A member of the RNA family "mir-208 microRNA precursor family" from Monodelphis domestica, 57 nucleotides long. The family has 29 seed sequences and 563 matches in Rfam 15.1. Pairs were carried over by alignment from the consensus structure, which was predicted with RNAalifold.
[Rfam]
Nucleotides: 057
Base pairs, nucleotide, nucleotide: 001055002054003053004052005051006050007049008048010046013043014042017039018038019037020036021035022034
Number, partner (000 for none) and nucleotide at each position: 001055a002054a003053g004052c005051u006050u007049u008048u009000u010046g011000c012000u013043c014042g015000g016000g017039u018038u019037a020036u021035g022034u023000u024000u025000u026000g027000g028000a029000u030000c031000u032000g033000a034022a035021u036020a037019u038018a039017a040000g041000a042014c043013g044000a045000a046010c047000a048008a049007a050006a051005g052004g053003u054002u055001u056000g057000u